[Rfam]
RNA sequence: CAAGUGCUGUGAUGAUUAUUUUAUAUCUCUUACCUACAUUAUUUGAGACUUUGUGAAACUAAUAUACUUCUGAGCACUUG
Numbered sequence: 001c002a003a004g005u006g007c008u009g010u011g012a013u014g015a016u017u018a019u020u021u022u023a024u025a026u027c028u029c030u031u032a033c034c035u036a037c038a039u040u041a042u043u044u045g046a047g048a049c050u051u052u053g054u055g056a057a058a059c060u061a062a063u064a065u066a067c068u069u070c071u072g073a074g075c076a077c078u079u080g
Stems, first nucleotide, its partner, number of pairs: 001080002004077004
Rfam assigns this 80-nucleotide sequence from Apolygus lucorum to the family "Small nucleolar RNA SNORD34". Taxonomically the source falls in Apolygus (Eukaryota, Opisthokonta, Dicondylia, Neoptera). The base pairs follow the family's consensus structure, which was predicted with PFOLD. It is annotated as a C/D-box small nucleolar RNA.